[Rfam]
RNA sequence: CCUAUUGAGUGUUAUAUCAAAUGAUAGUAGAUAUGAGAGUAUCUCAUAUUGAGGUCAGACACAAUGAUGUAGGAA
Numbered sequence: 001c002c003u004a005u006u007g008a009g010u011g012u013u014a015u016a017u018c019a020a021a022u023g024a025u026a027g028u029a030g031a032u033a034u035g036a037g038a039g040u041a042u043c044u045c046a047u048a049u050u051g052a053g054g055u056c057a058g059a060c061a062c063a064a065u066g067a068u069g070u071a072g073g074a075a
Stems, first nucleotide, its partner, number of pairs: 001073005009062005022057003030050003034046004
Dot-bracket structure: (((((...(((((........(((.....(((.((((.....)))).)))....))))))))......)))))..
About this RNA:
Shown here is a 75-nucleotide RNA sequence, a member of the family "RAGATH-18 RNA". Actinobacteria, Firmicutes, Fusobacteria, Thermotogae (1 example).